[Rfam]
RNA sequence: GCGAUGAUUUAAAAUAGCCUUCUUGGUCUUGUGCGCAAAGUACGCAAAAAAGCAGUCAAAAGCGCUUGGAGUGUGACGCACGGAAUCUGAGAGUGUUUCGGUAAAGGCCGAAACCUAAAAUUUAUCAAUAUUGAGG
Dot-bracket structure: .(((((...((((.......(((((..((.((((((........(.........((.....))....)....))...))))))....)))))..((.((((......)))).))......))))....)))))...
Rfam assigns this 136-nucleotide RNA sequence from Polynucleobacter sinensis to the family "icd-II ncRNA motif". The literature on the family includes a 2021 paper in RNA Biol by Brewer et al., "Comprehensive discovery of novel structured noncoding RNAs in 26 bacterial genomes". It is annotated as a cis-regulatory element. It is one of the family's seed sequences. The organism belongs to Polynucleobacter, within Bacteria. About the family: icd-II ncRNA motif was located upstream of icd gene, which codes for NADP+-dependent isocitrate dehydrogenase (IDH) enzyme. icd-II has been proposed as a strong candidate riboswitch.